[Rfam]
RNA sequence: GCACUGGCGGGGAGUUAUGCCAUUGUGUCCCCUUGCCGGAUCUCGCUGGAUAGCGAUGUCAGAGUCCCAGAUAGUGC
Numbered sequence: 001g002c003a004c005u006g007g008c009g010g011g012g013a014g015u016u017a018u019g020c021c022a023u024u025g026u027g028u029c030c031c032c033u034u035g036c037c038g039g040a041u042c043u044c045g046c047u048g049g050a051u052a053g054c055g056a057u058g059u060c061a062g063a064g065u066c067c068c069a070g071a072u073a074g075u076g077c
Stems, first nucleotide, its partner, number of pairs: 001077006009032004038068002042064003
This 77-nucleotide RNA sequence from Leptolyngbya sp. FACHB-261 belongs to the Rfam family "CyVA-1 RNA". Rfam classes the family as a small RNA. Cyanobacteria, Acidobacteria (1 example), Verrucomicrobia (1 example). The source organism's lineage runs through Bacteria, Cyanobacteriota, Cyanophyceae, Leptolyngbyales and Leptolyngbya. Pairs were carried over by alignment from the consensus structure, which is taken from published work.